[Rfam]
RNA sequence: UUACUACCAAAUCCUAUCUCAACCUCCAAGUGGUGACCACUGGCAGCUCUUUCUUAAUGAAAAGCUGCAGACGGAGAAGG
Numbered sequence: 001u002u003a004c005u006a007c008c009a010a011a012u013c014c015u016a017u018c019u020c021a022a023c024c025u026c027c028a029a030g031u032g033g034u035g036a037c038c039a040c041u042g043g044c045a046g047c048u049c050u051u052u053c054u055u056a057a058u059g060a061a062a063a064g065c066u067g068c069a070g071a072c073g074g075a076g077a078a079g080g
Stems, first nucleotide, its partner, number of pairs: 013080003017076001019074002022034003044067005050061002053059001